Rfam assigns this 126-nucleotide sequence from Biostraticola tofi to the family "Phenylalanine leader peptide". Rfam links the family to the GO term cellular amino acid metabolic process. The organism belongs to Biostraticola, within Bacteria. Rfam classes the family as a cis-regulatory leader.
[Rfam]
RNA sequence: CAUGUCUUCAUCACCGUUUCUCUUCGCAUCCUUUUUUAUCUUCCCCUAAAUGGGAGGCCUGUCGUCAUGUGAGAAAGAAUGCGAAGACGAACAAAAAAGCCUCCCGACAACGGAGGCUUUUUUUAU
Number, nucleotide and partner (000 for none) at each position: 001c000002a000003u000004g000005u000006c000007u000008u000009c000010a000011u000012c000013a000014c000015c000016g092017u091018u090019u089020c000021u087022c086023u085024u084025c083026g082027c081028a080029u079030c000031c077032u076033u075034u074035u000036u072037u071038a070039u069040c000041u000042u055043c054044c053045c052046c000047u000048a000049a000050a000051u000052g045053g044054g043055a042056g066057g065058c064059c000060u000061g000062u000063c000064g058065u057066c056067a000068u000069g039070u038071g037072a036073g000074a034075a033076a032077g031078a000079a029080u028081g027082c026083g025084a024085a023086g022087a021088c000089g019090a018091a017092c016093a000094a000095a000096a120097a119098a118099g117100c116101c115102u114103c113104c112105c000106g000107a000108c000109a000110a000111c000112g104113g103114a102115g101116g100117c099118u098119u097120u096121u000122u000123u000124u000125a000126u000